[Rfam]
RNA sequence: CAAGUAUGACAAGUAAUCGCGGCUGCGAAUGCCGAAAGGCUGCAGGUGAGGAAAGUCCGGGCUUCACAGGGCAGGAUGCCGGAUAACGUCCGGUGGAGGUGACUCCAAGGCCAGUGCAACAGAAAUAUACCGCCUGAUCUUUGGAUCAGGUAAGGGUGGAAAGGCAGCGUAAGAGACUACCGCCCUGCUGGUAACAGCAGGGGCACAUGUAAACCCCAUCCGAAGCAAGACCGAAAAGAGAAGAUACGGCGGCCCGUCGGUUCUCAGGUAGGUUGCUUGAGCCUGUUGGCAACAGCAGGUCUAGAUAGAUGAUUACUCAACGACAUAACCCGGCUUAUCGUUGUGCUUGAACC
Numbered sequence: 001c002a003a004g005u006a007u008g009a010c011a012a013g014u015a016a017u018c019g020c021g022g023c024u025g026c027g028a029a030u031g032c033c034g035a036a037a038g039g040c041u042g043c044a045g046g047u048g049a050g051g052a053a054a055g056u057c058c059g060g061g062c063u064u065c066a067c068a069g070g071g072c073a074g075g076a077u078g079c080c081g082g083a084u085a086a087c088g089u090c091c092g093g094u095g096g097a098g099g100u101g102a103c104u105c106c107a108a109g110g111c112c113a114g115u116g117c118a119a120c121a122g123a124a125a126u127a128u129a130c131c132g133c134c135u136g137a138u139c140u141u142u143g144g145a146u147c148a149g150g151u152a153a154g155g156g157u158g159g160a161a162a163g164g165c166a167g168c169g170u171a172a173g174a175g176a177c178u179a180c181c182g183c184c185c186u187g188c189u190g191g192u193a194a195c196a197g198c199a200g201g202g203g204c205a206c207a208u209g210u211a212a213a214c215c216c217c218a219u220c221c222g223a224a225g226c227a228a229g230a231c232c233g234a235a236a237a238g239a240g241a242a243g244a245u246a247c248g249g250c251g252g253c254c255c256g257u258c259g260g261u262u263c264u265c266a267g268g269u270a271g272g273u274u275g276c277u278u279g280a281g282c283c284u285g286u287u288g289g290c291a292a293c294a295g296c297a298g299g300u301c302u303a304g305a306u307a308g309a310u311g312a313u314u315a316c317u318c319a320a321c322g323a324c325a326u327a328a329c330c331c332g333g334c335u336u337a338u339c340g341u342u343g344u345g346c347u348u349g350a351a352c353c
Base pairs, nucleotide, nucleotide: 001349002348003347004346005345006344007343008342009341010340011338012317013316014315015314016313017312018311020048021047023045024044025043026042027041053336054335055334057333058332059331060330061329062225063224064223065222069255070254071253072252074221075220076219077218078217079093080092081091082090083089094108095106096105097104098103109216110215114214115213116210117209118208130155131154132151133150134149135148136147137146138145139144163181164180166178167177182204183202184201185200186199187198188197189196190195229274230273231272232271238265239264240263241262242261247259248258249257250256281300282299283298284297285296286295287294288293
RNA: Bacterial RNase P class A